[Rfam]
Nucleotides: 133
Base pairs, nucleotide, nucleotide: 038099040097041096042095043094044093045092047090049088050087051086056082057081063077065075066074067073
Number, partner (000 for none) and nucleotide at each position: 001000g002000c003000a004000a005000a006000a007000a008000c009000a010000a011000a012000a013000a014000a015000g016000a017000a018000a019000a020000a021000a022000u023000g024000a025000g026000c027000u028000u029000u030000u031000u032000a033000u034000u035000a036000a037000c038099a039000a040097a041096u042095a043094c044093a045092u046000u047090u048000u049088g050087g051086u052000g053000g054000u055000g056082g057081c058000a059000c060000u061000c062000u063077c064000a065075a066074c067073u068000u069000a070000a071000a072000a073067a074066g075065u076000c077063g078000u079000g080000a081057g082056c083000c084000a085000a086051g087050u088049c089000g090047g091000u092045g093044u094043g095042u096041a097040u098000u099038u100000a101000c102000a103000a104000a105000u106000a107000g108000a109000a110000a111000g112000u113000u114000u115000u116000u117000a118000a119000a120000a121000u122000a123000c124000a125000a126000a127000g128000c129000c130000u131000a132000u133000c

This 133-nucleotide RNA sequence from Dysgonomonas sp. Marseille-P4677 belongs to the Rfam family "Bacteroidete tryptophan peptide leader RNA". The family's RNA type in Rfam is cis-regulatory leader. Gene Ontology terms of the family: S-adenosylmethionine metabolic process and regulation of gene expression. The source organism's lineage runs through Bacteria, Pseudomonadati, Bacteroidota, Bacteroidales and Dysgonomonas. Pairs were carried over by alignment from the consensus structure, which is taken from published work.